A member of the RNA family "MIR7725 microRNA precursor family" from Chiloscyllium punctatum, 142 nucleotides long. Pairs were carried over by alignment from the consensus structure, which was predicted with RNAalifold. It scores 77 bits against the family's covariance model. Lineage of the source: Eukaryota > Galeomorphii > Galeoidea > Hemiscylliidae > Chiloscyllium. Its family is annotated with miRNA-mediated post-transcriptional gene silencing and RISC complex in the Gene Ontology.
RNA sequence: UGUUCGCCGAGCUGGGAAUUUGUCUUGCAAACGUUUCGUCCCCUGUCUAGGUGACAUCCUCUGUGAUGAUCUUUUAACACUGAGGAAGUCACCUAUACAGGGGACGAAACGUUUGCAAGACAAAUUCCCAGCUCGGCGAACA
Numbered sequence: 001u002g003u004u005c006g007c008c009g010a011g012c013u014g015g016g017a018a019u020u021u022g023u024c025u026u027g028c029a030a031a032c033g034u035u036u037c038g039u040c041c042c043c044u045g046u047c048u049a050g051g052u053g054a055c056a057u058c059c060u061c062u063g064u065g066a067u068g069a070u071c072u073u074u075u076a077a078c079a080c081u082g083a084g085g086a087a088g089u090c091a092c093c094u095a096u097a098c099a100g101g102g103g104a105c106g107a108a109a110c111g112u113u114u115g116c117a118a119g120a121c122a123a124a125u126u127c128c129c130a131g132c133u134c135g136g137c138g139a140a141c142a
Stems, first nucleotide, its partner, number of pairs: 001142002004139006011132007019124015034108003039104004044099003048095008057086002063080003067076002